[Rfam]
RNA: Leucine operon leader
Organism: Pantoea sp. M_5
RNA sequence: AUAAGGUUUGAAUCCAUGUUUCGUUUUGCUCGCCUUCUCGGUCUACUACUAAACGCAUACAGCUUGCGCGGUAGACUUGUGGGCGGAAUCAAACACUGAUUCAAACCUGCUGAAAGUUAAAAACCCGCGCCUGUCGCGGGUUUUUUU
Number, nucleotide and partner (000 for none) at each position: 001a000002u000003a000004a108005g000006g106007u105008u104009u103010g102011a000012a100013u099014c098015c000016a097017u095018g094019u093020u000021u000022c000023g000024u000025u000026u086027u085028g084029c083030u082031c081032g080033c079034c000035u000036u000037c000038u000039c000040g000041g000042u000043c000044u000045a000046c074047u073048a072049c071050u070051a000052a000053a000054c068055g067056c066057a065058u000059a000060c000061a000062g000063c000064u000065u057066g056067c055068g054069c000070g050071g049072u048073a047074g046075a000076c000077u000078u000079g033080u032081g031082g030083g029084c028085g027086g026087a000088a000089u000090c000091a000092a000093a019094c018095a017096c000097u016098g014099a013100u012101u000102c010103a009104a008105a007106c006107c000108u004109g000110c000111u000112g000113a000114a000115a000116g000117u000118u000119a000120a144121a143122a142123a141124c140125c139126c138127g137128c136129g135130c000131c000132u000133g000134u000135c129136g128137c127138g126139g125140g124141u123142u122143u121144u120145u000146u000147u000